[Rfam]
RNA sequence: GAUCCGAUAGUAUGGUAGAAAGGUUCAUGUAUUUCUUUCUACCACACUAUCUAUUAGUUUUAUUGUAUUGUAUAUUAUAUAAAAU
Numbered sequence: 001g002a003u004c005c006g007a008u009a010g011u012a013u014g015g016u017a018g019a020a021a022g023g024u025u026c027a028u029g030u031a032u033u034u035c036u037u038u039c040u041a042c043c044a045c046a047c048u049a050u051c052u053a054u055u056a057g058u059u060u061u062a063u064u065g066u067a068u069u070g071u072a073u074a075u076u077a078u079a080u081a082a083a084a085u
Base pairs, nucleotide, nucleotide: 006051007050008049009048010047011046013044014043015042016041017040018039019038020037021036022035023034
RNA: Plastid-psbM 3UTR RNA